[Rfam]
RNA: FMN riboswitch aptamer (RFN element)
Organism: Neomicrococcus aestuarii
RNA sequence: UACGUGCUCCGGGGUCGGUGUAAUUCCGAACCGGCGGUAUAGUCCGCGAACCACUGGGCGUUCUCGUGCAAACGAGGAUAAACAGCGGCUGAACUGGUGAAAUUCCAGUACCGACAGUUAAAGUCUGGAUGGGAGAAGCACGUG
Numbered sequence: 001u002a003c004g005u006g007c008u009c010c011g012g013g014g015u016c017g018g019u020g021u022a023a024u025u026c027c028g029a030a031c032c033g034g035c036g037g038u039a040u041a042g043u044c045c046g047c048g049a050a051c052c053a054c055u056g057g058g059c060g061u062u063c064u065c066g067u068g069c070a071a072a073c074g075a076g077g078a079u080a081a082a083c084a085g086c087g088g089c090u091g092a093a094c095u096g097g098u099g100a101a102a103u104u105c106c107a108g109u110a111c112c113g114a115c116a117g118u119u120a121a122a123g124u125c126u127g128g129a130u131g132g133g134a135g136a137a138g139c140a141c142g143u144g
Stems, first nucleotide, its partner, number of pairs: 003142006010135001016028003030124002032113002034047004042111002051088002093109005115127003